[Rfam]
RNA sequence: GUAGUUGUGGCCAGGUGGUUAAGACGAUAGACUAGAAAUCCAUUGGUGUUUCCCCACACAGGUUCAAAUCCUGUCAACUACU
Numbered sequence: 001g002u003a004g005u006u007g008u009g010g011c012c013a014g015g016u017g018g019u020u021a022a023g024a025c026g027a028u029a030g031a032c033u034a035g036a037a038a039u040c041c042a043u044u045g046g047u048g049u050u051u052c053c054c055c056a057c058a059c060a061g062g063u064u065c066a067a068a069u070c071c072u073g074u075c076a077a078c079u080a081c082u
Base pairs, nucleotide, nucleotide: 001081002080003079004078005077006076007075010025012023027043028042030040031039058074059073060072061071062070
This 82-nucleotide RNA from Balaenoptera musculus belongs to the Rfam family "tRNA". Transfer RNA (tRNA) molecules are approximately 80 nucleotides in length. Their secondary structure includes four short double-helical elements and three loops (D, anti-codon, and T loops). Further hydrogen bonds mediate the characteristic L-shaped molecular structure. tRNAs have two regions of fundamental functional importance: the anti-codon, which is responsible for specific mRNA codon recognition, and the 3' end, to which the tRNAs corresponding amino acid is attached (by aminoacyl-tRNA synthetases). tRNAs cope with the degeneracy of the genetic code in two manners: having more than one tRNA (with a specific anti-codon) for a particular amino acid; and 'wobble' base-pairing, i.e. permitting non-standard base-pairing at the 3rd anti-codon position. The source organism's lineage runs through Eukaryota, Opisthokonta, Eumetazoa, Vertebrata and Balaenoptera. Pairs were carried over by alignment from the consensus structure, which is taken from published work. A reference for the family is Hou (1993), "The tertiary structure of tRNA and the development of the genetic code", Trends Biochem Sci. A search with the family's covariance model found it, with a score of 45 bits.